[Rfam]
RNA: mir-6 microRNA precursor family
RNA sequence: AAUCGAAGGGAACAGUGGCAGUGAUGUAUUCCAUAUGAUGAAAUAUUUAUAUCACAGUGGCUGUUCUUUUUGGGU
Numbered sequence: 001a002a003u004c005g006a007a008g009g010g011a012a013c014a015g016u017g018g019c020a021g022u023g024a025u026g027u028a029u030u031c032c033a034u035a036u037g038a039u040g041a042a043a044u045a046u047u048u049a050u051a052u053c054a055c056a057g058u059g060g061c062u063g064u065u066c067u068u069u070u071u072g073g074g075u
Stems, first nucleotide, its partner, number of pairs: 004072002007069007016060001018058002021055003025051004